[Rfam]
Nucleotides: 147
Base pairs, nucleotide, nucleotide: 005143006142007141008140009139010138017029018028019027031127032126033117034116035067036066037065038064062115063114071092072091097113098112099111100110101109119130120129121128
Number, partner (000 for none) and nucleotide at each position: 001000u002000u003000g004000a005143a006142c007141c008140u009139u010138c011000g012000g013000g014000g015000c016000a017029g018028g019027g020000u021000g022000a023000a024000a025000u026000u027019c028018c029017c030000u031127a032126c033117c034116g035067g036066c037065g038064g039000u040000g041000a042000u043000g044000g045000a046000u047000a048000c049000g050000g051000a052000a053000g054000u055000a056000u057000c058000u059000a060000a061000a062115g063114c064038c065037c066036g067035c068000g069000a070000c071092u072091c073000c074000c075000a076000g077000u078000c079000u080000g081000u082000a083000u084000a085000g086000a087000g088000u089000g090000g091072g092071a093000c094000u095000g096000a097113c098112u099111u100110g101109g102000u103000g104000a105000a106000a107000c108000u109101c110100c111099a112098a113097g114063g115062c116034c117033g118000a119130c120129g121128g122000u123000a124000u125000a126032g127031u128121c129120c130119g131000g132000a133000u134000g135000a136000g137000a138010g139009a140008a141007g142006g143005u144000g145000a146000a147000g
A member of the RNA family "FMN riboswitch aptamer (RFN element)" from Paenibacillus sp. Root444D2, 147 nucleotides long.
Lineage of the source: Bacteria > Bacillati > Caryophanales > Paenibacillaceae > Paenibacillus.
Rfam links the family to the GO term FMN binding.